[Rfam]
RNA sequence: AAGCGUUUGCUAUGAAGAGAGCUAUCCAUCGACAGUAUGGUAAUGAUAGACACUGUCAUGGAGUUGCUCUCUUUGUGGACGUCGCU
Numbered sequence: 001a002a003g004c005g006u007u008u009g010c011u012a013u014g015a016a017g018a019g020a021g022c023u024a025u026c027c028a029u030c031g032a033c034a035g036u037a038u039g040g041u042a043a044u045g046a047u048a049g050a051c052a053c054u055g056u057c058a059u060g061g062a063g064u065u066g067c068u069c070u071c072u073u074u075g076u077g078g079a080c081g082u083c084g085c086u
Base pairs, nucleotide, nucleotide: 014074015073016072017071018070020068021067022066025062026061027060028059031057032056033055035053036052

Rfam assigns this 86-nucleotide sequence from Harpegnathos saltator to the family "mir-46/mir-47/mir-281 microRNA precursor family". The organism belongs to Harpegnathos, within Eukaryota. On this family, see Lau et al., Science 2001: "An abundant class of tiny RNAs with probable regulatory roles in Caenorhabditis elegans". The family's consensus secondary structure was predicted with RNAalifold. A search with the family's covariance model found it, with a score of 75 bits.